[Rfam]
RNA: Small nucleolar RNA SNORA74
Organism: Canis lupus
RNA sequence: CCCAGCGGUUGUCAGCUAUCCAGGCUAGUAUGUUGCCUUGGAUGGUGUUACACUGUUGGAAGAGCAAACACUGCCUUUAUUGAGGUCUGGCUCCGAGCACUGUUUUGGUGUUGCAGCUAAGUACUCUUGGGCAGCGUUUUGCACCUCUGAGAGUGGAAGAACUCCUCCUGUGGAGUUGGUCCUAGUCUGGGUGCAAACAGU
Numbered sequence: 001c002c003c004a005g006c007g008g009u010u011g012u013c014a015g016c017u018a019u020c021c022a023g024g025c026u027a028g029u030a031u032g033u034u035g036c037c038u039u040g041g042a043u044g045g046u047g048u049u050a051c052a053c054u055g056u057u058g059g060a061a062g063a064g065c066a067a068a069c070a071c072u073g074c075c076u077u078u079a080u081u082g083a084g085g086u087c088u089g090g091c092u093c094c095g096a097g098c099a100c101u102g103u104u105u106u107g108g109u110g111u112u113g114c115a116g117c118u119a120a121g122u123a124c125u126c127u128u129g130g131g132c133a134g135c136g137u138u139u140u141g142c143a144c145c146u147c148u149g150a151g152a153g154u155g156g157a158a159g160a161a162c163u164c165c166u167c168c169u170g171u172g173g174a175g176u177u178g179g180u181c182c183u184a185g186u187c188u189g190g191g192u193g194c195a196a197a198c199a200g201u
Stems, first nucleotide, its partner, number of pairs: 002059008011051002015046006022038004068137002071134006082127001084125003088119005094113003098110004139196008155182003160177006